The record is a 75-nucleotide RNA sequence from Myotis myotis, which matches "Small nucleolar RNA SNORD72" in Rfam. The match comes from Rfam's covariance-model search (68 bits). The family's RNA type in Rfam is C/D-box small nucleolar RNA. NCBI's taxonomy places the organism under Eukaryota, Deuterostomia, Teleostomi, Yangochiroptera, Myotis. snoRNA HBII-240 belongs to the CD family of snoRNAs. It is the human orthologue of the mouse MBII-240 and is predicted to guide 2'O-ribose methylation of the large 28S rRNA at residue U4590.
[Rfam]
RNA sequence: AUUCAGUGAGUGAUGUAAAAAUAAAUGUCUGAACAUAUGAAUUCAAUAUUGAUGUCAGCAUUUAACUCAUUAAAA
Numbered sequence: 001a002u003u004c005a006g007u008g009a010g011u012g013a014u015g016u017a018a019a020a021a022u023a024a025a026u027g028u029c030u031g032a033a034c035a036u037a038u039g040a041a042u043u044c045a046a047u048a049u050u051g052a053u054g055u056c057a058g059c060a061u062u063u064a065a066c067u068c069a070u071u072a073a074a075a
Base pairs, nucleotide, nucleotide: 002074003073005071006070007069008068
Rfam 15.1 lists 726 matches to the family in 499 species.